[Rfam]
Description: This 102-nucleotide RNA from Halalkalibacter oceani belongs to the Rfam family "Purine riboswitch aptamer". A search with the family's covariance model found it, with a score of 88 bits. The source organism's lineage runs through Bacteria, Bacillota, Bacilli, Caryophanales and Halalkalibacter. Rfam 15.1 lists 4,097 matches to the family in 1,411 species.

RNA sequence: UCUCUUUUCUUACUUUAUUUUCGUAUAACUGCAGGAAUAUGGCCUGCAAGUCUCUACCAAGCUGCCGUAAAUAGCUUGACUACGAAAAAUCAACCUAUUCCA
Number, nucleotide and partner (000 for none) at each position: 001u000002c000003u000004c000005u000006u000007u000008u000009c000010u000011u000012a000013c000014u000015u000016u000017a000018u088019u087020u086021u085022c084023g083024u082025a081026u000027a000028a000029c000030u048031g047032c046033a045034g044035g043036a000037a000038u000039a000040u000041g000042g000043c035044c034045u033046g032047c031048a030049a000050g000051u000052c000053u000054c000055u000056a000057c000058c078059a077060a076061g075062c074063u073064g072065c000066c000067g000068u000069a000070a000071a000072u064073a063074g062075c061076u060077u059078g058079a000080c000081u025082a024083c023084g022085a021086a020087a019088a018089a000090u000091c000092a000093a000094c000095c000096u000097a000098u000099u000100c000101c000102a000